[Rfam]
RNA sequence: AGGUAAAAAUAGGAACAGACAAGGAUGAGGCAGAGCAUGGAAUGAACCAAUCAACACAAAUAUUGUUGUUGCUCUUUCCAUGCACUGCCUCUUCCCUGGCUCUCCAUUUUUCUACUUAU
Numbered sequence: 001a002g003g004u005a006a007a008a009a010u011a012g013g014a015a016c017a018g019a020c021a022a023g024g025a026u027g028a029g030g031c032a033g034a035g036c037a038u039g040g041a042a043u044g045a046a047c048c049a050a051u052c053a054a055c056a057c058a059a060a061u062a063u064u065g066u067u068g069u070u071g072c073u074c075u076u077u078c079c080a081u082g083c084a085c086u087g088c089c090u091c092u093u094c095c096c097u098g099g100c101u102c103u104c105c106a107u108u109u110u111u112c113u114a115c116u117u118a119u
Stems, first nucleotide, its partner, number of pairs: 017101002020098002023095003028090006035083006044074002
The family of this 119-nucleotide RNA sequence from Aquilegia coerulea is "MIR408 microRNA precursor family".
For this family Rfam cites "High throughput approaches reveal splicing of primary microRNA transcripts and tissue specific expression of mature microRNAs in Vitis vinifera" (Mica et al., BMC Genomics, 2009).
It scores 85 bits against the family's covariance model.
Taxonomically the source falls in Aquilegia (Eukaryota, Tracheophyta, Spermatophyta, Ranunculaceae).
Rfam 15.1 lists 299 matches to the family in 186 species.